[Rfam]
RNA: Streptococcus sRNA SpF59 (ldcC RNA)
RNA sequence: GGACCGCCCAACAGGGGCGGGGCGAACGAUUGCAAAAGCUUCGUUGUGCCCCAUGGCCAUACGGACAGCCGGGUCCACUGCCGA
Numbered sequence: 001g002g003a004c005c006g007c008c009c010a011a012c013a014g015g016g017g018c019g020g021g022g023c024g025a026a027c028g029a030u031u032g033c034a035a036a037a038g039c040u041u042c043g044u045u046g047u048g049c050c051c052c053a054u055g056g057c058c059a060u061a062c063g064g065a066c067a068g069c070c071g072g073g074u075c076c077a078c079u080g081c082c083g084a
Stems, first nucleotide, its partner, number of pairs: 001076005006049002009046003